[Rfam]
RNA sequence: UGAUUAUCAAGAGUGAACGAGAGAAUUGGCUCUAUGACUUCACAGCAACCUCCCCAUCAGGAAAGGUGCUCCUACCAACAAAGCUCUGCUUUGGUUGAUAAAAG
Number, nucleotide and partner (000 for none) at each position: 001u104002g000003a000004u101005u100006a099007u098008c097009a000010a000011g000012a000013g043014u042015g041016a040017a039018c000019g000020a000021g032022a031023g030024a000025a000026u078027u077028g076029g075030c023031u022032c021033u000034a000035u000036g000037a000038c000039u017040u016041c015042a014043c013044a070045g069046c068047a067048a000049c066050c065051u062052c061053c060054c000055c000056a000057u000058c000059a000060g053061g052062a051063a000064a000065g050066g049067u047068g046069c045070u044071c000072c000073u000074a096075c029076c028077a027078a026079c093080a092081a091082a090083g089084c088085u000086c000087u000088g084089c083090u082091u081092u080093g079094g000095u000096u074097g008098a007099u006100a005101a004102a000103a000104g001
Annotation: A member of the RNA family "SAM riboswitch aptamer (S box leader)" from Schinkia azotoformans, 104 nucleotides long.